[Rfam]
RNA sequence: AAAAGUGUGAGGAGGCAGUAUACGAGGUCUGUCUCUUCAUAACGAAGAACGUUGAGGUAUAUCAAAAUCAAUGGCCGAGAUAUCGUUUCAGUCGUCAUUUUUCCUCCAUUGACGGUCUGAUUGUUGCUCGUCCACAC
Dot-bracket structure: .....((((((((((((............))))))))))))...............................((.((((..((((.....(((((((.(........).))))))).)))).....)))).))....
Numbered sequence: 001a002a003a004a005g006u007g008u009g010a011g012g013a014g015g016c017a018g019u020a021u022a023c024g025a026g027g028u029c030u031g032u033c034u035c036u037u038c039a040u041a042a043c044g045a046a047g048a049a050c051g052u053u054g055a056g057g058u059a060u061a062u063c064a065a066a067a068u069c070a071a072u073g074g075c076c077g078a079g080a081u082a083u084c085g086u087u088u089c090a091g092u093c094g095u096c097a098u099u100u101u102u103c104c105u106c107c108a109u110u111g112a113c114g115g116u117c118u119g120a121u122u123g124u125u126g127c128u129c130g131u132c133c134a135c136a137c
Stems, first nucleotide, its partner, number of pairs: 006041012073133002076130004082121004091116007099108001